[Rfam]
RNA sequence: AUGAAGCUGCCGGGAGAGACCGCGUCAUGCGGCGCCGAAGGGGAAACGCCGAAAACUCUCAGGCAAAGGGACCGGCAGCGGACA
Dot-bracket structure: .....((((((((......((((.....)))).(((((..(((...(...)....))))).))).......)))))))).....